RNA sequence: UACCUUCUUUCUUGGCGCUCCUAUCGAUUUCAAGAUGGAAGUGUAUGUUAAAGAAGGGAAAUCAUGCCCUGCAUUGGGUAUUCGGGUCUCCUUCGGUGCUAUUCCAGUGAUCUUUCGAGUAGUGUCAUCCUCUGGGCUCGAGACAUUC
Numbered sequence: 001u002a003c004c005u006u007c008u009u010u011c012u013u014g015g016c017g018c019u020c021c022u023a024u025c026g027a028u029u030u031c032a033a034g035a036u037g038g039a040a041g042u043g044u045a046u047g048u049u050a051a052a053g054a055a056g057g058g059a060a061a062u063c064a065u066g067c068c069c070u071g072c073a074u075u076g077g078g079u080a081u082u083c084g085g086g087u088c089u090c091c092u093u094c095g096g097u098g099c100u101a102u103u104c105c106a107g108u109g110a111u112c113u114u115u116c117g118a119g120u121a122g123u124g125u126c127a128u129c130c131u132c133u134g135g136g137c138u139c140g141a142g143a144c145a146u147u148c
Base pairs, nucleotide, nucleotide: 003057004056005055006054007053008052009051010050015044016043017042018041021038022037023036024035067078068077069076081142082141083140084139085138086137087136088135089134095126096125099122100121101120102119103118104117
This 148-nucleotide RNA sequence from Ancylostoma ceylanicum belongs to the Rfam family "Nematode snoRNA ceN88". It scores 95 bits against the family's covariance model. It is annotated as an H/ACA-box small nucleolar RNA. Lineage of the source: Eukaryota > Opisthokonta > Ecdysozoa > Nematoda > Ancylostoma. Rfam links the family to the GO terms nucleolus and RNA processing. On this family, see Jia et al., BMC Mol Biol 2007: "Systematic identification of non-coding RNA 2,2,7-trimethylguanosine cap structures in Caenorhabditis elegans".